mir-4872 microRNA precursor family: a 77-nucleotide sequence from Branchiostoma floridae.
RNA sequence: UCACAAGUGGUGUCAGGACGACAAAAGCUCUGAGUCCUCUCAACACCAGAGUUUUGUUGCCCCGACUCCUUUUGUGG
Dot-bracket structure: ((.((((.((.(((.((.((((.(((((((((.((.......))..))))))))))))).)).))).)).)))).))